[Rfam]
Nucleotides: 184
Base pairs, nucleotide, nucleotide: 004180005179006178007177008176009175010174011173012172013171014170015169017168018167019166032153033152034151036149037148038147039146040145041144059130060129061128063126064125065124066123067122068121073119074118075117076116077115078114079113085107086106090103091102092101093100094099
Number, partner (000 for none) and nucleotide at each position: 001000a002000u003000u004180u005179c006178u007177c008176u009175g010174a011173g012172g013171u014170g015169u016000u017168c018167g019166u020000c021000a022000g023000c024000g025000g026000g027000u028000c029000a030000g031000u032153c033152c034151c035000c036149u037148g038147a039146g040145c041144c042000g043000a044000u045000a046000u047000u048000u049000a050000a051000u052000a053000c054000c055000a056000a057000c058000a059130g060129a061128a062000u063126g064125u065124a066123g067122u068121g069000c070000c071000u072000c073119c074118g075117u076116a077115a078114c079113c080000g081000g082000u083000g084000c085107g086106c087000a088000u089000g090103c091102u092101c093100g094099g095000u096000c097000c098000g099094c100093c101092g102091a103090g104000a105000a106086g107085c108000c109000u110000u111000a112000a113079g114078g115077u116076u117075g118074c119073g120000a121068c122067g123066c124065u125064g126063c127000g128061u129060u130059c131000a132000c133000c134000u135000u136000g137000a138000a139000c140000c141000a142000u143000g144041g145040g146039u147038u148037c149036a150000a151034g152033g153032g154000u155000u156000a157000c158000a159000g160000c161000c162000u163000g164000c165000g166019g167018c168017g169015g170014c171013a172012u173011c174010u175009c176008g177007g178006a179005g180004a181000u182000c183000c184000c